Background:
This 69-nucleotide RNA sequence from Danionella cerebrum belongs to the Rfam family "mir-8/mir-141/mir-200 microRNA precursor family". Clan: mir-8 microRNA precursor clan. A search with the family's covariance model found it, with a score of 70 bits. Taxonomically the source falls in Danionella (Eukaryota, Eumetazoa, Vertebrata, Ostariophysi).

[Rfam]
RNA sequence: GCAAUCAUCUUACCGGACAGUGCUGGACUUAAUAUCGGUUUUCUAACACUGUCUGGUAACGAUGUUUGU
Numbered sequence: 001g002c003a004a005u006c007a008u009c010u011u012a013c014c015g016g017a018c019a020g021u022g023c024u025g026g027a028c029u030u031a032a033u034a035u036c037g038g039u040u041u042u043c044u045a046a047c048a049c050u051g052u053c054u055g056g057u058a059a060c061g062a063u064g065u066u067u068g069u
Base pairs, nucleotide, nucleotide: 002068003067004066006064007063008062009061010059011058012057013056014055015054016053017052018051019050020049021048022047024045025044026043027042